[Rfam]
RNA sequence: AAAUCGGCCCUUUUCAGGGCCACCAUUUAUUAAAGAAAAGUUUUC
Numbered sequence: 001a002a003a004u005c006g007g008c009c010c011u012u013u014u015c016a017g018g019g020c021c022a023c024c025a026u027u028u029a030u031u032a033a034a035g036a037a038a039a040g041u042u043u044u045c
Base pairs, nucleotide, nucleotide: 006021007020008019009018010017011016
Dot-bracket structure: .....((((((....))))))........................
Rfam assigns this 45-nucleotide sequence from Daphnia galeata to the family "Histone 3' UTR stem-loop". It scores 38 bits against the family's covariance model. The source organism's lineage runs through Eukaryota, Eumetazoa, Branchiopoda, Diplostraca and Daphnia. Rfam links the family to the GO term mRNA 3'-end processing by stem-loop binding and cleavage.